[Rfam]
Source information: This 53-nucleotide sequence from Nyssa sinensis belongs to the Rfam family "Plastid-atpF group II-D1 intron". The base pairs follow the family's consensus structure, which was predicted with LocARNA. Plastid atpF is a non-coding RNA (ncRNA) recognised in plastids. It has been reported in the intron group II-D1 region of ATP synthase (atpF) genes. The source organism's lineage runs through Eukaryota, Viridiplantae, Gunneridae, asterids and Nyssa.

RNA sequence: GAAUAUUUUUUUGAUAUAGAACACUCAUGUCGAUAAAAUGAUUUGGGCAUAGU
Numbered sequence: 001g002a003a004u005a006u007u008u009u010u011u012u013g014a015u016a017u018a019g020a021a022c023a024c025u026c027a028u029g030u031c032g033a034u035a036a037a038a039u040g041a042u043u044u045g046g047g048c049a050u051a052g053u
Base pairs, nucleotide, nucleotide: 011033012032013031014030015029016028017027